[Rfam]
RNA: TPP riboswitch aptamer (THI element)
RNA sequence: GGAAUCUACUAGGGGCGCGAGUGUUCGCUGAGAUAAGGAAAUAAAUUCCUUGGUCCCUUAACACCUGAUCUGGAUCAUGCCAGCGGAGGGAAGUAGUAAGCAGCCCCA
Numbered sequence: 001g002g003a004a005u006c007u008a009c010u011a012g013g014g015g016c017g018c019g020a021g022u023g024u025u026c027g028c029u030g031a032g033a034u035a036a037g038g039a040a041a042u043a044a045a046u047u048c049c050u051u052g053g054u055c056c057c058u059u060a061a062c063a064c065c066u067g068a069u070c071u072g073g074a075u076c077a078u079g080c081c082a083g084c085g086g087a088g089g090g091a092a093g094u095a096g097u098a099a100g101c102a103g104c105c106c107c108a
Base pairs, nucleotide, nucleotide: 006096007095008094009093010092011058012057013056014055016052017028018027019026020025035051036050037049038048039047064089065088066087070083071082072081073080